[Rfam]
RNA sequence: GCACCGGAUGGGAGUUCUAUCGCAGUGACCCAUUGCCGUUUCUCGAAGAAAAGCGAUUGCAGACUAACGGACGGUGC
Numbered sequence: 001g002c003a004c005c006g007g008a009u010g011g012g013a014g015u016u017c018u019a020u021c022g023c024a025g026u027g028a029c030c031c032a033u034u035g036c037c038g039u040u041u042c043u044c045g046a047a048g049a050a051a052a053g054c055g056a057u058u059g060c061a062g063a064c065u066a067a068c069g070g071a072c073g074g075u076g077c
Stems, first nucleotide, its partner, number of pairs: 001077006009032004037069004043063002
About this RNA:
CyVA-1 RNA: a 77-nucleotide RNA sequence. Rfam describes the family as follows. Cyanobacteria, Acidobacteria (1 example), Verrucomicrobia (1 example). Rfam classes the family as a small RNA.